[Rfam]
Vault RNA: a 98-nucleotide RNA sequence from Triplophysa tibetana. By type it is a non-coding RNA gene. NCBI's taxonomy places the organism under Eukaryota, Opisthokonta, Clupeocephala, Ostariophysi, Triplophysa.

RNA sequence: GCAUUGGUUUGGCUCAGGGGUUACUUCUGACUCCAUGCAUACGGCAUUGUGGUAUCUCCUGAAAUAGGAUUGAACUCCGGGCAUUGUCCAAUGUUUUA
Numbered sequence: 001g002c003a004u005u006g007g008u009u010u011g012g013c014u015c016a017g018g019g020g021u022u023a024c025u026u027c028u029g030a031c032u033c034c035a036u037g038c039a040u041a042c043g044g045c046a047u048u049g050u051g052g053u054a055u056c057u058c059c060u061g062a063a064a065u066a067g068g069a070u071u072g073a074a075c076u077c078c079g080g081g082c083a084u085u086g087u088c089c090a091a092u093g094u095u096u097u098a
Base pairs, nucleotide, nucleotide: 002093003092004091005090006089007088012082013081014080015079017078018077019076020075025074026073027072029070